Notes: Shown here is a 111-nucleotide RNA from Sphingomonas sp. NFR15, a member of the family "Glycine riboswitch aptamer". Rfam's curators write: This family represents the bacterial glycine riboswitch. The match comes from Rfam's covariance-model search (44 bits).
RNA sequence: AUCGACACUCUGGAAAGCGGCCCAGCGCGUUUCGCGCGGCCCACCGAAGGGGUAAACCAUCCGGUCGUGCGGUUGGUGAAAGCUCUCAGGUUCCGUGACAGAGGGGGCGGU
Numbered sequence: 001a002u003c004g005a006c007a008c009u010c011u012g013g014a015a016a017g018c019g020g021c022c023c024a025g026c027g028c029g030u031u032u033c034g035c036g037c038g039g040c041c042c043a044c045c046g047a048a049g050g051g052g053u054a055a056a057c058c059a060u061c062c063g064g065u066c067g068u069g070c071g072g073u074u075g076g077u078g079a080a081a082g083c084u085c086u087c088a089g090g091u092u093c094c095g096u097g098a099c100a101g102a103g104g105g106g107g108c109g110g111u
Base pairs, nucleotide, nucleotide: 006105008103009102010101011100012099019041020040021039022038043091044090045089046087047086050085051084052083056077057076058075059074